The family of this 34-nucleotide RNA sequence from Anseranas semipalmata is "Iron response element I". The organism belongs to Anseranas, within Eukaryota. A search with the family's covariance model found it, with a score of 34 bits. The literature on the family includes a 1987 paper in Science by Hentze et al., "Identification of the iron-responsive element for the translational regulation of human ferritin mRNA". Rfam classes the family as a cis-regulatory element.
RNA sequence: UGUUCUUGCUUUAACAGUGCUUGGAUGGAACUGG
Numbered sequence: 001u002g003u004u005c006u007u008g009c010u011u012u013a014a015c016a017g018u019g020c021u022u023g024g025a026u027g028g029a030a031c032u033g034g
Stems, first nucleotide, its partner, number of pairs: 002031005008026001010025005015019001